Nucleotides: 223
Base pairs, nucleotide, nucleotide: 011020012019013018056223057222058221059220060219061218062217072215074213075212076211077210078209079208080204081203082202083201084200085199088195089194090193091192092191093190094189095188096187097135098134100132101131102130104129105128107126108125109124110123112121113120114119136140141186142185144183145182146181153176154175155174160169161168162167
Number, partner (000 for none) and nucleotide at each position: 001000u002000u003000u004000g005000c006000u007000g008000u009000a010000a011020c012019c013018c014000u015000u016000c017000g018013g019012g020011g021000g022000g023000g024000u025000g026000c027000u028000u029000g030000c031000g032000g033000g034000a035000a036000c037000u038000c039000g040000g041000u042000g043000a044000a045000c046000u047000g048000u049000c050000a051000u052000g053000u054000u055000g056223g057222c058221g059220c060219g061218u062217u063000c064000u065000c066000a067000c068000u069000g070000c071000g072215u073000u074213g075212g076211c077210u078209g079208u080204c081203u082202g083201g084200u085199g086000c087000g088195g089194g090193c091192g092191g093190g094189a095188g096187u097135c098134g099000u100132c101131u102130c103000u104129g105128g106000u107126g108125g109124c110123u111000u112121c113120c114119c115000g116000u117000a118000g119114g120113g121112g122000u123110g124109g125108c126107u127000u128105c129104c130102g131101a132100g133000u134098c135097g136140u137000u138000g139000a140136a141186u142185g143000c144183g145182g146181c147000g148000g149000a150000c151000c152000g153176c154175u155174u156000c157000a158000g159000g160169c161168u162167g163000g164000c165000a166000a167162c168161a169160g170000a171000g172000c173000a174155g175154a176153g177000a178000a179000a180000a181146g182145c183144u184000u185142c186141a187096g188095c189094u190093u191092c192091u193090g194089c195088u196000a197000c198000c199085c200084a201083c202082c203081a204080g205000a206000u207000c208079g209078c210077g211076g212075c213074c214000c215072g216000c217062g218061g219060u220059g221058c222057g223056c
Shown here is a 223-nucleotide RNA from Babesia sp. Xinjiang, a member of the family "Protozoan signal recognition particle RNA".
The organism belongs to Babesia, within Eukaryota.
On this family, see Batey et al., Science 2000: "Crystal structure of the ribonucleoprotein core of the signal recognition particle".
Gene Ontology terms of the family: signal recognition particle, endoplasmic reticulum targeting and SRP-dependent cotranslational protein targeting to membrane, signal sequence recognition.
The family's RNA type in Rfam is non-coding RNA gene.
Clan: SRP clan.
The family's consensus secondary structure is taken from published work.